[Rfam]
RNA sequence: CUGUGAAUAUUCUUGCUGCUCUGAUUCUGUAAUACGCAGGACAGGCUACACAUUCACUAUAUUAAGACCAUGCCUGUGUCCUCAGACCUAGUUCUUUUUCUAGGUCUGUUUUUUAUUUUUUUUUAUUUUU
Numbered sequence: 001c002u003g004u005g006a007a008u009a010u011u012c013u014u015g016c017u018g019c020u021c022u023g024a025u026u027c028u029g030u031a032a033u034a035c036g037c038a039g040g041a042c043a044g045g046c047u048a049c050a051c052a053u054u055c056a057c058u059a060u061a062u063u064a065a066g067a068c069c070a071u072g073c074c075u076g077u078g079u080c081c082u083c084a085g086a087c088c089u090a091g092u093u094c095u096u097u098u099u100c101u102a103g104g105u106c107u108g109u110u111u112u113u114u115a116u117u118u119u120u121u122u123u124u125a126u127u128u129u130u
Stems, first nucleotide, its partner, number of pairs: 003057003016044003020040004026034001067123001070120001072119001083108009
Shown here is a 130-nucleotide RNA from Tupaia belangeri, a member of the family "Small nucleolar RNA SNORA72". A search with the family's covariance model found it, with a score of 95 bits. Rfam describes the family as follows. U72 is a member of the H/ACA class of snoRNAs. Pairs were carried over by alignment from the consensus structure, which was predicted with PFOLD. The organism belongs to Tupaia belangeri, within Eukaryota. For this family Rfam cites "The family of box ACA small nucleolar RNAs is defined by an evolutionarily conserved secondary structure and ubiquitous sequence elements essential for RNA accumulation" (Ganot et al., Genes Dev, 1997).